Source information: The record is a 53-nucleotide RNA from Agrilactobacillus composti, which matches "Ribosomal protein L13 leader" in Rfam. It scores 51 bits against the family's covariance model. Rfam describes the family as follows. This family is a putative r-protein leader autoregulatory structure found in B. subtilis and other low-GC Gram-positive bacteria. It is located in the 5' untranslated regions of mRNAs encoding the L13-S9 (rplM-rpsI) ribosomal protein operon.
[Rfam]
RNA sequence: GGUAUUGUUUGCCCCACGAUAAGCCCCGGAAACUUACUGGUGUCAAACAUCGA
Numbered sequence: 001g002g003u004a005u006u007g008u009u010u011g012c013c014c015c016a017c018g019a020u021a022a023g024c025c026c027c028g029g030a031a032a033c034u035u036a037c038u039g040g041u042g043u044c045a046a047a048c049a050u051c052g053a
Stems, first nucleotide, its partner, number of pairs: 006049006017039002020036004
For this family Rfam cites "Diverse mechanisms for regulating ribosomal protein synthesis in Escherichia coli" (Zengel and Lindahl, Prog Nucleic Acid Res Mol Biol, 1994). Lineage of the source: Bacteria > Bacillati > Lactobacillales > Lactobacillaceae > Agrilactobacillus composti. Gene Ontology term of the family: regulation of gene expression.